RNA sequence: CUGAUUCUGGUUUCAAUCCAUACUAGUCUUUCUAUAUGUACAGAUAAUGUAGAAAACCUGGUAUGGAUUGUUACCAGGUUCAG
Numbered sequence: 001c002u003g004a005u006u007c008u009g010g011u012u013u014c015a016a017u018c019c020a021u022a023c024u025a026g027u028c029u030u031u032c033u034a035u036a037u038g039u040a041c042a043g044a045u046a047a048u049g050u051a052g053a054a055a056a057c058c059u060g061g062u063a064u065g066g067a068u069u070g071u072u073a074c075c076a077g078g079u080u081c082a083g
Stems, first nucleotide, its partner, number of pairs: 003081002006078001008076004014070009029055005
The family of this 83-nucleotide sequence from Ornithorhynchus anatinus is "mir-1422 microRNA precursor family". Rfam's curators put it in the seed alignment. Gene Ontology terms of the family: RISC complex and miRNA-mediated post-transcriptional gene silencing. Pairs were carried over by alignment from the consensus structure, which was predicted with RNAalifold.